Notes
This 76-nucleotide RNA sequence from Hyella patelloides belongs to the Rfam family "Cyano-1 RNA". Rfam classes the family as a small RNA. Pairs were carried over by alignment from the consensus structure, which is taken from published work. A search with the family's covariance model found it, with a score of 55 bits.
RNA sequence: AAGUGUGUGAGGAGUAAGUGUAAAAGAGAAAAGCUUUGGGGUCGAAACACGGCAAGACUCCCGAAGCUUUUUUCAU
Numbered sequence: 001a002a003g004u005g006u007g008u009g010a011g012g013a014g015u016a017a018g019u020g021u022a023a024a025a026g027a028g029a030a031a032a033g034c035u036u037u038g039g040g041g042u043c044g045a046a047a048c049a050c051g052g053c054a055a056g057a058c059u060c061c062c063g064a065a066g067c068u069u070u071u072u073u074c075a076u
Stems, first nucleotide, its partner, number of pairs: 015075001026074005033067002038062003041058003